[Rfam]
RNA sequence: GCAAAAUUCUAAGUAGUGGUGCCGCAGGCAAGGAAAAACAAUUAUUGAAUUACCUGCUCACACCUACUUAAACUUUUGC
Number, nucleotide and partner (000 for none) at each position: 001g079002c078003a077004a076005a075006a074007u000008u000009c000010u070011a069012a068013g067014u066015a065016g064017u000018g000019g061020u000021g000022c000023c000024g057025c056026a055027g054028g053029c000030a051031a000032g000033g000034a000035a000036a000037a000038a000039c000040a000041a000042u000043u000044a000045u000046u000047g000048a000049a000050u000051u030052a000053c028054c027055u026056g025057c024058u000059c000060a000061c019062a000063c000064c016065u015066a014067c013068u012069u011070a010071a000072a000073c000074u006075u005076u004077u003078g002079c001

This 79-nucleotide RNA sequence from Armadillidium nasatum belongs to the Rfam family "mir-252 microRNA precursor family". Pairs were carried over by alignment from the consensus structure, which was predicted with RNAalifold. Its family is annotated with RISC complex and miRNA-mediated post-transcriptional gene silencing in the Gene Ontology. Rfam 15.1 lists 422 matches to the family in 306 species. A search with the family's covariance model found it, with a score of 54 bits.